Notes
Rfam assigns this 129-nucleotide RNA sequence from Phyllostomus discolor to the family "Small nucleolar RNA SNORA56". It scores 107 bits against the family's covariance model. About the family: ACA56 is a member of the H/ACA class of snoRNA that guide the sites of modification of uridines to pseudouridines. By type it is an H/ACA-box small nucleolar RNA. Its family is annotated with RNA processing and nucleolus in the Gene Ontology. Its Rfam clan is "SNORA56 clan".
RNA sequence: UAACAGACAGUUAUCCCUUUCUAGUCUGGUUUGUGCGAUUGUAGAGGGAGUCAGUCUGCAACAGUUAAGUGUUAAGUUCUUCUGUCCAGCGUCAGCGUUUUGUGGUGACUUUGCACUUGCCAGAUAUCA
Numbered sequence: 001u002a003a004c005a006g007a008c009a010g011u012u013a014u015c016c017c018u019u020u021c022u023a024g025u026c027u028g029g030u031u032u033g034u035g036c037g038a039u040u041g042u043a044g045a046g047g048g049a050g051u052c053a054g055u056c057u058g059c060a061a062c063a064g065u066u067a068a069g070u071g072u073u074a075a076g077u078u079c080u081u082c083u084g085u086c087c088a089g090c091g092u093c094a095g096c097g098u099u100u101u102g103u104g105g106u107g108a109c110u111u112u113g114c115a116c117u118u119g120c121c122a123g124a125u126a127u128c129a
Stems, first nucleotide, its partner, number of pairs: 004058005020045004025038002070122002073119004078115001080113001084109003090104002093102003